[Rfam]
RNA sequence: AGCAAAAUGAUGAGCUAGAGUGUUCUGAAUUUUGUGUGGAAGCACAGAAAUAAAUGGUCUUCAAAGUUCUCUGAUUGCU
Number, nucleotide and partner (000 for none) at each position: 001a079002g078003c077004a076005a075006a000007a000008u000009g000010a000011u000012g000013a000014g000015c000016u000017a000018g000019a000020g000021u000022g000023u000024u000025c000026u000027g000028a000029a000030u000031u000032u000033u000034g000035u000036g000037u000038g000039g000040a000041a000042g000043c000044a000045c000046a000047g000048a000049a000050a000051u000052a000053a000054a000055u000056g000057g000058u000059c000060u000061u000062c000063a000064a000065a000066g000067u000068u000069c000070u000071c000072u000073g000074a000075u005076u004077g003078c002079u001
RNA: Small nucleolar RNA R160